The record is a 151-nucleotide RNA from Microbulbifer sp. THAF38, which matches "Molybdenum/Tungsten riboswitch aptamer (Moco RNA motif)" in Rfam. NCBI's taxonomy places the organism under Bacteria, Pseudomonadati, Gammaproteobacteria, Cellvibrionales, Microbulbifer. The family has 160 seed sequences and 1,248 matches in Rfam 15.1.
[Rfam]
RNA sequence: CAUCCGUUUAAACACCGAGUACCGCAAUCUAAACAGCAAUACCUAAUGGUACUUCUGCAUGGUUUCGGCACCGUGGCUGUAAUAGCCACCAGGGUUGGGUAGGAAACUGCACAGCCUCCCGACAUUGGAAAGGCGUUUAAUGUUACAAGAC
Numbered sequence: 001c002a003u004c005c006g007u008u009u010a011a012a013c014a015c016c017g018a019g020u021a022c023c024g025c026a027a028u029c030u031a032a033a034c035a036g037c038a039a040u041a042c043c044u045a046a047u048g049g050u051a052c053u054u055c056u057g058c059a060u061g062g063u064u065u066c067g068g069c070a071c072c073g074u075g076g077c078u079g080u081a082a083u084a085g086c087c088a089c090c091a092g093g094g095u096u097g098g099g100u101a102g103g104a105a106a107c108u109g110c111a112c113a114g115c116c117u118c119c120c121g122a123c124a125u126u127g128g129a130a131a132g133g134c135g136u137u138u139a140a141u142g143u144u145a146c147a148a149g150a151c
Stems, first nucleotide, its partner, number of pairs: 003145001011137003015133002019071002022068003026064004034057003073089005092117006099110004118128002
Dot-bracket structure: ..(.......(((.((..((.(((.((((....(((..................)))...)))).))).)).(((((.......)))))..((((((.((((....)))).))))))((.......))...)).))).......)......